The record is a 98-nucleotide RNA sequence from Streptococcus sp. DD12, which matches "23S methyl RNA motif" in Rfam. On this family, see Weinberg et al., Nucleic Acids Res 2007: "Identification of 22 candidate structured RNAs in bacteria using the CMfinder comparative genomics pipeline".
RNA sequence: AAUUCGUUGAUUUAACUCAAACCUGUUAUGAUUUAAGUUAACGAGUGACAUGCAACCAGGUUGUUUGCUGAGUUUACUCCGAGCAACCUGGUUUUCUU
Numbered sequence: 001a002a003u004u005c006g007u008u009g010a011u012u013u014a015a016c017u018c019a020a021a022c023c024u025g026u027u028a029u030g031a032u033u034u035a036a037g038u039u040a041a042c043g044a045g046u047g048a049c050a051u052g053c054a055a056c057c058a059g060g061u062u063g064u065u066u067g068c069u070g071a072g073u074u075u076a077c078u079c080c081g082a083g084c085a086a087c088c089u090g091g092u093u094u095u096c097u098u
Stems, first nucleotide, its partner, number of pairs: 002046014017031003054093014070079003